[Rfam]
RNA sequence: UAUUAAAAAUUUCAUACAUUUUUAUUGUUAAAAUUUGACAUGACUGACAAAAUAAUUAGACAGUUACACUUGACAUGUUAAGUGUACUUUAUGCUGACAUAUAAUGACUAAUUUUUAACAGUAAAAAUAGAUGAAAUUUUUAACA
Numbered sequence: 001u002a003u004u005a006a007a008a009a010u011u012u013c014a015u016a017c018a019u020u021u022u023u024a025u026u027g028u029u030a031a032a033a034u035u036u037g038a039c040a041u042g043a044c045u046g047a048c049a050a051a052a053u054a055a056u057u058a059g060a061c062a063g064u065u066a067c068a069c070u071u072g073a074c075a076u077g078u079u080a081a082g083u084g085u086a087c088u089u090u091a092u093g094c095u096g097a098c099a100u101a102u103a104a105u106g107a108c109u110a111a112u113u114u115u116u117a118a119c120a121g122u123a124a125a126a127a128u129a130g131a132u133g134a135a136a137u138u139u140u141u142a143a144c145a
Stems, first nucleotide, its partner, number of pairs: 003143013018128009028118006
Shown here is a 145-nucleotide sequence from Gossypium schwendimanii, a member of the family "MIR7502 microRNA precursor family".